[Rfam]
Nucleotides: 132
Stems, first nucleotide, its partner, number of pairs: 013029005078132005089127002092124003095120004
Number, partner (000 for none) and nucleotide at each position: 001000a002000a003000c004000u005000u006000u007000c008000u009000u010000c011000g012000c013029g014028g015027g016026g017025g018000a019000g020000c021000u022000c023000g024000a025017c026016c027015c028014c029013c030000g031000c032000a033000a034000u035000c036000g037000a038000u039000g040000a041000u042000c043000a044000u045000g046000g047000g048000u049000u050000u051000c052000a053000u054000c055000g056000a057000c058000a059000c060000g061000a062000u063000g064000a065000g066000a067000g068000c069000c070000g071000a072000g073000g074000g075000g076000c077000a078132c079131g080130c081129g082128g083000u084000c085000g086000a087000g088000u089127c090126g091000a092124c093123u094122u095120g096119c097118a098117g099000g100000g101000u102000u103000c104000u105000g106000c107000g108000u109000g110000a111000g112000c113000a114000g115000g116000g117098c118097u119096g120095c121000c122094a123093g124092g125000u126090c127089g128082c129081c130080g131079c132078g
Rfam assigns this 132-nucleotide sequence from Demequina lutea to the family "ALIL pseudoknot". The match comes from Rfam's covariance-model search (51 bits). Taxonomically the source falls in Demequina (Bacteria, Actinomycetota, Actinomycetes, Micrococcales). Rfam links the family to the GO term positive regulation of translational frameshifting. On this family, see Mazauric et al., J Biol Chem 2008: "Apical loop-internal loop RNA pseudoknots: a new type of stimulator of -1 translational frameshifting in bacteria". The family's RNA type in Rfam is cis-regulatory element.